[Rfam]
RNA sequence: ACAGGCCACUCUGAAAAGCAGACGUACGGUGCCCACCGGGCCGACGGCGUCUCGCCCACGGUGAAAGCCGCGGACCUCACGGGCCGCGGUGAAACUCUCAGGCACAUGACAGAGGGGGAGUU
Numbered sequence: 001a002c003a004g005g006c007c008a009c010u011c012u013g014a015a016a017a018g019c020a021g022a023c024g025u026a027c028g029g030u031g032c033c034c035a036c037c038g039g040g041c042c043g044a045c046g047g048c049g050u051c052u053c054g055c056c057c058a059c060g061g062u063g064a065a066a067g068c069c070g071c072g073g074a075c076c077u078c079a080c081g082g083g084c085c086g087c088g089g090u091g092a093a094a095c096u097c098u099c100a101g102g103c104a105c106a107u108g109a110c111a112g113a114g115g116g117g118g119a120g121u122u
Base pairs, nucleotide, nucleotide: 006117007116009114010113011112012111013110020052021051022050023049024048025047054103055102056101058098061097063095067090068089069088070087071086072085073084